[Rfam]
RNA sequence: GUUGUCGUAUCCACUUUAAUCCAUGUGUGUUGGUGUGGAUUGAUGUGAAAUUUAGUUCAAGUUCCACUUCAAUCCACUUCAACAUAUGUGGAUUGAUGUGAAUCCAACA
Numbered sequence: 001g002u003u004g005u006c007g008u009a010u011c012c013a014c015u016u017u018a019a020u021c022c023a024u025g026u027g028u029g030u031u032g033g034u035g036u037g038g039a040u041u042g043a044u045g046u047g048a049a050a051u052u053u054a055g056u057u058c059a060a061g062u063u064c065c066a067c068u069u070c071a072a073u074c075c076a077c078u079u080c081a082a083c084a085u086a087u088g089u090g091g092a093u094u095g096a097u098g099u100g101a102a103u104c105c106a107a108c109a
Stems, first nucleotide, its partner, number of pairs: 004108002007105001009103002012100003016096017035077009045067003
Dot-bracket structure: ...((.(.((.(((.(((((((((((((((((..(((((((((.(((.................))).)))))))))..))))))))))))))))).))).)).).)).